A member of the RNA family "DUF3800-VII RNA", 88 nucleotides long. By type it is a small RNA. The sequence is in the family's curated seed alignment.
[Rfam]
RNA sequence: GGCAGGCAUGCGCGGGGUGAACCGUUGGCUGCCUUGACCGGCGGCAGCGAGCGAUCGUCAAACUCAACGGCCCGGGGCCUGCCCAGAG
Numbered sequence: 001g002g003c004a005g006g007c008a009u010g011c012g013c014g015g016g017g018u019g020a021a022c023c024g025u026u027g028g029c030u031g032c033c034u035u036g037a038c039c040g041g042c043g044g045c046a047g048c049g050a051g052c053g054a055u056c057g058u059c060a061a062a063c064u065c066a067a068c069g070g071c072c073c074g075g076g077g078c079c080u081g082c083c084c085a086g087a088g
Stems, first nucleotide, its partner, number of pairs: 001083007011075001013074004022070006028045006048057003